[Rfam]
RNA sequence: AUUGGACCCGGCUUGCCGGGUGGCUCGGCCGGGCGCCUAUCCCUCGGACAACU
Numbered sequence: 001a002u003u004g005g006a007c008c009c010g011g012c013u014u015g016c017c018g019g020g021u022g023g024c025u026c027g028g029c030c031g032g033g034c035g036c037c038u039a040u041c042c043c044u045c046g047g048a049c050a051a052c053u
Stems, first nucleotide, its partner, number of pairs: 006021006029047005
sul1 RNA: a 53-nucleotide RNA sequence from Achromobacter piechaudii. The sequence is in the family's curated seed alignment. Rfam classes the family as a riboswitch. The base pairs follow the family's consensus structure, which is taken from published work.